Description: The family of this 237-nucleotide RNA sequence from Sulfobacillus harzensis is "Group II catalytic intron D1-D4-6". The literature on the family includes a 2001 paper in EMBO J by Chu et al., "Control of branch-site choice by a group II intron". Rfam 15.1 lists 1,617 matches to the family in 661 species.
RNA sequence: CAAUGGUGGCCAGAACAAAGCCUAGCCAGCAGUUCUGUACCGAGUCUUGCGUGGUUGGGGGUGACCCCGUCUGCGAAGCGUAGACAGGGAGGUUGUAGGCCGGAAUCAUGUGAAGAGGAGAUUAGCCCCGAAAUCUGUCGCGGUCGAAGUUGCCGAUUCUGUCCCCCGAAGGGAGAAGGCAGCAUCCCGCUCACCGUAUUGGCAAGGGGAGCGCGGAAACUUCCGGGGUUGGUACCU
Numbered sequence: 001c002a003a004u005g006g007u008g009g010c011c012a013g014a015a016c017a018a019a020g021c022c023u024a025g026c027c028a029g030c031a032g033u034u035c036u037g038u039a040c041c042g043a044g045u046c047u048u049g050c051g052u053g054g055u056u057g058g059g060g061g062u063g064a065c066c067c068c069g070u071c072u073g074c075g076a077a078g079c080g081u082a083g084a085c086a087g088g089g090a091g092g093u094u095g096u097a098g099g100c101c102g103g104a105a106u107c108a109u110g111u112g113a114a115g116a117g118g119a120g121a122u123u124a125g126c127c128c129c130g131a132a133a134u135c136u137g138u139c140g141c142g143g144u145c146g147a148a149g150u151u152g153c154c155g156a157u158u159c160u161g162u163c164c165c166c167c168g169a170a171g172g173g174a175g176a177a178g179g180c181a182g183c184a185u186c187c188c189g190c191u192c193a194c195c196g197u198a199u200u201g202g203c204a205a206g207g208g209g210a211g212c213g214c215g216g217a218a219a220c221u222u223c224c225g226g227g228g229u230u231g232g233u234a235c236c237u
Stems, first nucleotide, its partner, number of pairs: 012036005020030002023205001025203002038090001040088002044085004048080002050075005056069005123231001125229006146223006152180003157174004185217003188213005194207002